The record is a 173-nucleotide RNA from Vagococcus silagei, which matches "Group II catalytic intron D1-D4-3" in Rfam. The pairing is the family consensus, mapped onto this sequence.
[Rfam]
RNA sequence: UCUGCCGUAAGGCAGUGACUGAAGGAAGCUCGACGCAAAAUUCCGAACUGACGAACAGAAAUUAGAUACAAGGCUGAAUUAGGUUGGAUAAGUUUGCUAAACAAAACAAAGUCCAAUAUUGCUCGAAACCUAUACAGUAAAUCUAACAGUUACAUGGAAUGAAAGUUAUAUCU
Numbered sequence: 001u002c003u004g005c006c007g008u009a010a011g012g013c014a015g016u017g018a019c020u021g022a023a024g025g026a027a028g029c030u031c032g033a034c035g036c037a038a039a040a041u042u043c044c045g046a047a048c049u050g051a052c053g054a055a056c057a058g059a060a061a062u063u064a065g066a067u068a069c070a071a072g073g074c075u076g077a078a079u080u081a082g083g084u085u086g087g088a089u090a091a092g093u094u095u096g097c098u099a100a101a102c103a104a105a106a107c108a109a110a111g112u113c114c115a116a117u118a119u120u121g122c123u124c125g126a127a128a129c130c131u132a133u134a135c136a137g138u139a140a141a142u143c144u145a146a147c148a149g150u151u152a153c154a155u156g157g158a159a160u161g162a163a164a165g166u167u168a169u170a171u172c173u
Base pairs, nucleotide, nucleotide: 002015003014004013005012006011028173032169035166036165040160041159042158043157044156045155046151047150048149049148050147062146063145064144065143066142067141073138074137075136080132081131082130083129084128086114087113088112089111092107093106094105095104
Taxonomically the source falls in Vagococcus (Bacteria, Bacillati, Lactobacillales, Enterococcaceae).